Notes:
U5 spliceosomal RNA: a 118-nucleotide sequence from Phanerodontia chrysosporium. The family's consensus secondary structure is taken from published work. U5 RNA is a component of both types of known spliceosome. The precise function of this molecule is unknown, though it is known that the 5' loop is required for splice site selection and p220 binding, and that both the 3' stem-loop and the Sm site are important for Sm protein binding and cap methylation. The family's RNA type in Rfam is spliceosomal small nuclear RNA.

[Rfam]
RNA sequence: AGCGGCAGAGGGCAGCACAAACAGACAACGCCCUCGCCUUUUACUAGGGCGUUCCGUGUGCUGCCCUCACAUCAAUGCCGCUUAGCCAAUUUUUCAGCCCUCAGCUUCGUCCUGAGAU
Dot-bracket structure: ..((((..(((((((((((.......((((((((...........))))))))...))))))))))).........))))................(..(((((.......))))).)